[Rfam]
RNA sequence: CAGUGAGGUAGAGGCGCGAUAUUUAACAGUCUUUAAGCAGAGCUUGAGAAGGCAAUGAUGCUAAAGAGAAGGAAAUAUCGCCGAAGUGAGCAAUUUAUCUCAAAAUUGCUUGCUGGGUCUGCAGUCAAUAGCUGCAGGACUGUCUCAAUAAACUCCCAGUUUAUUGAGUUGUGCUAUCUCAGGA
Numbered sequence: 001c002a003g004u005g006a007g008g009u010a011g012a013g014g015c016g017c018g019a020u021a022u023u024u025a026a027c028a029g030u031c032u033u034u035a036a037g038c039a040g041a042g043c044u045u046g047a048g049a050a051g052g053c054a055a056u057g058a059u060g061c062u063a064a065a066g067a068g069a070a071g072g073a074a075a076u077a078u079c080g081c082c083g084a085a086g087u088g089a090g091c092a093a094u095u096u097a098u099c100u101c102a103a104a105a106u107u108g109c110u111u112g113c114u115g116g117g118u119c120u121g122c123a124g125u126c127a128a129u130a131g132c133u134g135c136a137g138g139a140c141u142g143u144c145u146c147a148a149u150a151a152a153c154u155c156c157c158a159g160u161u162u163a164u165u166g167a168g169u170u171g172u173g174c175u176a177u178c179u180c181a182g183g184a
Base pairs, nucleotide, nucleotide: 006179007178008177009176010175011174016081017080018079019078020077021076022075023074024073032066033065034064036062037061038060039059085114086113087112088111089110090109091108092107093106094105095104096103115141116140118138119137120136121135122134123133124132125131144168145167146166147165148164149163150162151161
RNA: Lysine riboswitch aptamer